RNA: Nematode snoRNA ceN39
RNA sequence: AAGGCAGCUAGGAACCAUAUAAAUGCUAAAAAUGCGUUAUAUGGGCCGAAAAUCUGCCAAUAGUAAAACGACAAAAAAUGGUCGCAUGACGUUUUUUAUGGACAUCGCGCAAUACCCUCUUUUGUAACACUU
Numbered sequence: 001a002a003g004g005c006a007g008c009u010a011g012g013a014a015c016c017a018u019a020u021a022a023a024u025g026c027u028a029a030a031a032a033u034g035c036g037u038u039a040u041a042u043g044g045g046c047c048g049a050a051a052a053u054c055u056g057c058c059a060a061u062a063g064u065a066a067a068a069c070g071a072c073a074a075a076a077a078a079u080g081g082u083c084g085c086a087u088g089a090c091g092u093u094u095u096u097u098a099u100g101g102a103c104a105u106c107g108c109g110c111a112a113u114a115c116c117c118u119c120u121u122u123u124g125u126a127a128c129a130c131u132u
Stems, first nucleotide, its partner, number of pairs: 003058005011047002015044007023037004072124005080116003084110002087107003091103001093102003